This 116-nucleotide RNA sequence from Sinocyclocheilus anshuiensis belongs to the Rfam family "Potassium channel RNA editing signal". The family's consensus secondary structure is taken from published work. The source organism's lineage runs through Eukaryota, Eumetazoa, Actinopteri, Neopterygii and Sinocyclocheilus. By type it is a cis-regulatory element.
RNA sequence: GUUGCAGGUAUGGAGACAUGGUUCCAAACACCAUCGCUGGAAAAAUCUUCGGCUCUAUCUGCUCUCUCAGUGGCGUGCUGGUUAUCGCCCUUCCUGUACCCGUCAUCGUGUCCAAC
Numbered sequence: 001g002u003u004g005c006a007g008g009u010a011u012g013g014a015g016a017c018a019u020g021g022u023u024c025c026a027a028a029c030a031c032c033a034u035c036g037c038u039g040g041a042a043a044a045a046u047c048u049u050c051g052g053c054u055c056u057a058u059c060u061g062c063u064c065u066c067u068c069a070g071u072g073g074c075g076u077g078c079u080g081g082u083u084a085u086c087g088c089c090c091u092u093c094c095u096g097u098a099c100c101c102g103u104c105a106u107c108g109u110g111u112c113c114a115a116c
Stems, first nucleotide, its partner, number of pairs: 001116002004113001007112001009110005015104003020099001023096001039079002042076001051065002